Shown here is a 55-nucleotide RNA sequence, a member of the family "Glutamine riboswitch aptamer (glnA leader)".
Gene Ontology term of the family: glutamine binding.
The literature on the family includes a 2011 paper in RNA Biol by Ames and Breaker, "Bacterial aptamers that selectively bind glutamine".

[Rfam]
RNA sequence: UACGUUCAUCCUUUAGGACGGAAGUAAGUAUUAAUUAAUACUGAAGGAACGCAUU
Numbered sequence: 001u002a003c004g005u006u007c008a009u010c011c012u013u014u015a016g017g018a019c020g021g022a023a024g025u026a027a028g029u030a031u032u033a034a035u036u037a038a039u040a041c042u043g044a045a046g047g048a049a050c051g052c053a054u055u
Stems, first nucleotide, its partner, number of pairs: 003051005009018003021052001027042006